RNA sequence: AAAAAGGAGAAAUAAUUAUUUUCUUGUUCUAUCAAGAGGAUACUAUUGCUCCUUUCUUUUU
Numbered sequence: 001a002a003a004a005a006g007g008a009g010a011a012a013u014a015a016u017u018a019u020u021u022u023c024u025u026g027u028u029c030u031a032u033c034a035a036g037a038g039g040a041u042a043c044u045a046u047u048g049c050u051c052c053u054u055u056c057u058u059u060u061u
Stems, first nucleotide, its partner, number of pairs: 001057001003055007011047004016042001017040001019038001022037005